[Rfam]
RNA sequence: UCGCAUCCGCCAACCGGUUAAGCCGUGUCGCGGGAGGUUUCCUUAACCAACUUAUGUUUCCCCGAGGGAAACGGAGGUCAGCG
Numbered sequence: 001u002c003g004c005a006u007c008c009g010c011c012a013a014c015c016g017g018u019u020a021a022g023c024c025g026u027g028u029c030g031c032g033g034g035a036g037g038u039u040u041c042c043u044u045a046a047c048c049a050a051c052u053u054a055u056g057u058u059u060c061c062c063c064g065a066g067g068g069a070a071a072c073g074g075a076g077g078u079c080a081g082c083g
Base pairs, nucleotide, nucleotide: 002083003082004081006034007033008032009031010030015025016024017023018022036048037047038046039045050078051077052076056072057071058070059069060068061067062066
Shown here is an 83-nucleotide RNA sequence from Hydrogenophaga crassostreae, a member of the family "SucA RNA motif". The family's consensus secondary structure is taken from published work. For this family Rfam cites "Identification of 22 candidate structured RNAs in bacteria using the CMfinder comparative genomics pipeline" (Weinberg et al., Nucleic Acids Res, 2007). The family's RNA type in Rfam is cis-regulatory element. A search with the family's covariance model found it, with a score of 80 bits.